This 599-nucleotide part of an RNA from Rufibacter ruber belongs to the Rfam family "Bacterial large subunit ribosomal RNA". Pairs were carried over by alignment from the consensus structure, which is taken from published work. Clan: LSU clan.
RNA sequence: UAGUAUCGGUGAAGAUGCCGAUUACCCGCUACGGGACGGAAAGACCCCGUGCACCUUUACUAUAGCUUAACAUUGACUCUGGGUAACUCGUGUGUAGGAUAGGUGGGAGACUGCGAUCCGGCGUCGCCAGGCGUCGGUUAGUCAACGUUGAAAUACCACCCUCGGGUUGCUUGGAGCCUAAUCCCUGGAGGGAGACAUUGUUUGGUGGGUAGUUUGACUGGGGUGGUCGCCUCCAAAAGAGUAACGGAGGCUUUCAAAGGUACCCUCAGCACGCUUGGUAACCGUGCGCAGAGCGCAAUAGCAGAAGGGUGCUUGACUGUGAGGCCCACAAGCCGAGCAGGGCCGAAAGGCGGAUAUAGUGAUCCGGUGGUUCCGCAUGGAAGGGCCAUCGCUCAAAGGAUAAAAGGUACGCCGGGGAUAACAGGCUGAUCUCCCCCAAGAGCUCAUAUCGACGGGGAGGUUUGGCACCUCGAUGUCGGCUCGUCACGUCCUGGGGCUGGAGAAGGUCCCAAGGGUUCGGCUGUUCGCCGAUUAAAGUGGCACGCGAGCUGGGUUCAGAACGUCGUGAGACAGUUCGGUCCCUAUCUGUAGUGGGCGUA
Numbered sequence: 001u002a003g004u005a006u007c008g009g010u011g012a013a014g015a016u017g018c019c020g021a022u023u024a025c026c027c028g029c030u031a032c033g034g035g036a037c038g039g040a041a042a043g044a045c046c047c048c049g050u051g052c053a054c055c056u057u058u059a060c061u062a063u064a065g066c067u068u069a070a071c072a073u074u075g076a077c078u079c080u081g082g083g084u085a086a087c088u089c090g091u092g093u094g095u096a097g098g099a100u101a102g103g104u105g106g107g108a109g110a111c112u113g114c115g116a117u118c119c120g121g122c123g124u125c126g127c128c129a130g131g132c133g134u135c136g137g138u139u140a141g142u143c144a145a146c147g148u149u150g151a152a153a154u155a156c157c158a159c160c161c162u163c164g165g166g167u168u169g170c171u172u173g174g175a176g177c178c179u180a181a182u183c184c185c186u187g188g189a190g191g192g193a194g195a196c197a198u199u200g201u202u203u204g205g206u207g208g209g210u211a212g213u214u215u216g217a218c219u220g221g222g223g224u225g226g227u228c229g230c231c232u233c234c235a236a237a238a239g240a241g242u243a244a245c246g247g248a249g250g251c252u253u254u255c256a257a258a259g260g261u262a263c264c265c266u267c268a269g270c271a272c273g274c275u276u277g278g279u280a281a282c283c284g285u286g287c288g289c290a291g292a293g294c295g296c297a298a299u300a301g302c303a304g305a306a307g308g309g310u311g312c313u314u315g316a317c318u319g320u321g322a323g324g325c326c327c328a329c330a331a332g333c334c335g336a337g338c339a340g341g342g343c344c345g346a347a348a349g350g351c352g353g354a355u356a357u358a359g360u361g362a363u364c365c366g367g368u369g370g371u372u373c374c375g376c377a378u379g380g381a382a383g384g385g386c387c388a389u390c391g392c393u394c395a396a397a398g399g400a401u402a403a404a405a406g407g408u409a410c411g412c413c414g415g416g417g418a419u420a421a422c423a424g425g426c427u428g429a430u431c432u433c434c435c436c437c438a439a440g441a442g443c444u445c446a447u448a449u450c451g452a453c454g455g456g457g458a459g460g461u462u463u464g465g466c467a468c469c470u471c472g473a474u475g476u477c478g479g480c481u482c483g484u485c486a487c488g489u490c491c492u493g494g495g496g497c498u499g500g501a502g503a504a505g506g507u508c509c510c511a512a513g514g515g516u517u518c519g520g521c522u523g524u525u526c527g528c529c530g531a532u533u534a535a536a537g538u539g540g541c542a543c544g545c546g547a548g549c550u551g552g553g554u555u556c557a558g559a560a561c562g563u564c565g566u567g568a569g570a571c572a573g574u575u576c577g578g579u580c581c582c583u584a585u586c587u588g589u590a591g592u593g594g595g596c597g598u599a
Base pairs, nucleotide, nucleotide: 005022006021007020008019009018025595026594027593028592029591030590031589032588034587035586036585038582039581046416047415048414049413051412052411053408054407055406056405057404059213060212061211062210066205067204069202070201071200072199075178077176078175079174080173081172082171083170084169085168086167087166088165089164090163092161102160103159104158105157106156109143110142111141118137119136120135121134122133123132124131125130182193183192184191216228217227218226219225229251230250231249232248233247234246252397254354255353260312261311262310263309264308265307266292267291269287270286271285272284273283293302294301317340318339319338320337323334324333325332342351343350344349365391366390367389368388369387370386371385373384374383425466426465427464429463430460431459432458433457434456435455436454440450441449477552478550479549480548481547482544483541484540485539486538487537490515491514493510494509495508496507497506498505517531518530519529520528521527558576559575560574561573562571563570564569